[Rfam]
MIR821 microRNA precursor family: a 266-nucleotide RNA from Oryza barthii. The source organism's lineage runs through Eukaryota, Euphyllophyta, Mesangiospermae, Petrosaviidae and Oryza. The family's consensus secondary structure was predicted with RNAalifold.

RNA sequence: AAAUUCAGCUGAAAAAGUCAUGAACAUAAAAGUUGUAUAACUCAUCAAGACAUACAACUUUUAUUUUGGUCAUUUCUUCAUCUGACAAAGUGAUAGUAACAUUGUUCAUAAAAUUUACAUCUCUCUUAUAGUUUUAUAAGAGAGAGAUGUAAAUUUUAUGAACAAUGUUACUAUCACUUUGUCGGAUGAAGAAAUGACCAAAAUAAAAGUUAUAGAUCUUAAUGAGUUAUACAACUUUGUUGUUUAUGACUUUUUCAGUUGAAAUC
Number, nucleotide and partner (000 for none) at each position: 001a000002a000003a000004u000005u000006c000007a000008g000009c000010u000011g000012a000013a000014a253015a252016a251017g250018u249019c248020a247021u246022g000023a244024a243025c000026a241027u000028a000029a000030a237031a236032g235033u234034u233035g232036u231037a230038u229039a228040a227041c226042u225043c000044a223045u222046c000047a220048a219049g218050a217051c000052a000053u214054a000055c000056a211057a210058c209059u208060u207061u206062u205063a204064u203065u202066u201067u200068g000069g198070u197071c196072a195073u194074u193075u192076c000077u190078u189079c188080a187081u186082c000083u184084g183085a182086c181087a180088a179089a178090g177091u176092g175093a000094u173095a172096g171097u170098a169099a168100c000101a166102u165103u164104g163105u162106u161107c160108a159109u158110a157111a156112a155113a000114u153115u152116u000117a150118c149119a148120u147121c146122u145123c000124u000125c000126u000127u000128a000129u000130a000131g000132u136133u000134u000135u000136a132137u000138a000139a000140g000141a000142g000143a000144g000145a122146g121147a120148u119149g118150u117151a000152a115153a114154u000155u112156u111157u110158a109159u108160g107161a106162a105163c104164a103165a102166u101167g000168u099169u098170a097171c096172u095173a094174u000175c092176a091177c090178u089179u088180u087181g086182u085183c084184g083185g000186a081187u080188g079189a078190a077191g000192a075193a074194a073195u072196g071197a070198c069199c000200a067201a066202a065203a064204u063205a062206a061207a060208a059209g058210u057211u056212a000213u000214a053215g000216a000217u050218c049219u048220u047221a000222a045223u044224g000225a042226g041227u040228u039229a038230u037231a036232c035233a034234a033235c032236u031237u030238u000239g000240u000241u026242g000243u024244u023245u000246a021247u020248g019249a018250c017251u016252u015253u014254u000255u000256c000257a000258g000259u000260u000261g000262a000263a000264a000265u000266c000